A member of the RNA family "Small nucleolar RNA Z278" from Nicotiana sylvestris, 118 nucleotides long. Rfam describes the family as follows. snoZ278 is a C/D box small nucleolar RNA. Its methylation guide targets have not been reported. NCBI's taxonomy places the organism under Eukaryota, Mesangiospermae, eudicotyledons, Solanaceae, Nicotiana. Rfam classes the family as a C/D-box small nucleolar RNA. On this family, see Chen et al., Nucleic Acids Res 2003: "The high diversity of snoRNAs in plants: identification and comparative study of 120 snoRNA genes from Oryza sativa".
RNA sequence: GCUGAUGAUGAUAUAAUCUAUUUUAUAUGAGGUGUAGUGGAUCCAAGUCCCUGCUUUUGCAGGGGGAACCUCUUGGCGAAACAACAUUACAAAUGAUCAUAUUGGAUUUUUCUGAAGC
Numbered sequence: 001g002c003u004g005a006u007g008a009u010g011a012u013a014u015a016a017u018c019u020a021u022u023u024u025a026u027a028u029g030a031g032g033u034g035u036a037g038u039g040g041a042u043c044c045a046a047g048u049c050c051c052u053g054c055u056u057u058u059g060c061a062g063g064g065g066g067a068a069c070c071u072c073u074u075g076g077c078g079a080a081a082c083a084a085c086a087u088u089a090c091a092a093a094u095g096a097u098c099a100u101a102u103u104g105g106a107u108u109u110u111u112c113u114g115a116a117g118c
Stems, first nucleotide, its partner, number of pairs: 001118003049064005